A member of the RNA family "Small nucleolar RNA snoR14" from Octopus sinensis, 83 nucleotides long. The family has 7 seed sequences and 668 matches in Rfam 15.1. Rfam links the family to the GO terms RNA processing and nucleolus. Rfam classes the family as a C/D-box small nucleolar RNA. A reference for the family is Brown et al. (2001), "Multiple snoRNA gene clusters from Arabidopsis", RNA.
RNA sequence: GUGUGGCUAUGAUGGAAAUGUCAUGAUCUGUCAAUCCACUGAUUUUAUCAAGUUUGAUGAGAAUUUAUUUUGACGCUGAGCAC
Numbered sequence: 001g002u003g004u005g006g007c008u009a010u011g012a013u014g015g016a017a018a019u020g021u022c023a024u025g026a027u028c029u030g031u032c033a034a035u036c037c038a039c040u041g042a043u044u045u046u047a048u049c050a051a052g053u054u055u056g057a058u059g060a061g062a063a064u065u066u067a068u069u070u071u072g073a074c075g076c077u078g079a080g081c082a083c
Stems, first nucleotide, its partner, number of pairs: 001083004